The family of this 79-nucleotide sequence from Melopsittacus undulatus is "mir-27 microRNA precursor family". The source organism's lineage runs through Eukaryota, Tetrapoda, Sauropsida, Aves and Melopsittacus.
RNA sequence: GCGAGGUGCAGAGCUUAGCUAAUUGGUGAACAGUGAUUAUUUCCCUCUUUGUUCACAGUGGCUAAGUUCUACACCUGAA
Numbered sequence: 001g002c003g004a005g006g007u008g009c010a011g012a013g014c015u016u017a018g019c020u021a022a023u024u025g026g027u028g029a030a031c032a033g034u035g036a037u038u039a040u041u042u043c044c045c046u047c048u049u050u051g052u053u054c055a056c057a058g059u060g061g062c063u064a065a066g067u068u069c070u071a072c073a074c075c076u077g078a079a
Base pairs, nucleotide, nucleotide: 011069012068013067014066015065016064017063018062019061020060026056027055028054029053030052031051032050
Dot-bracket structure: ..........((((((((((.....(((((((.................)))))))...))))))))))..........
The family's consensus secondary structure was predicted with RNAalifold.
On this family, see Yao et al., J Virol 2008: "MicroRNA profile of Marek's disease virus-transformed T-cell line MSB-1: predominance of virus-encoded microRNAs".
Its family is annotated with miRNA-mediated post-transcriptional gene silencing and RISC complex in the Gene Ontology.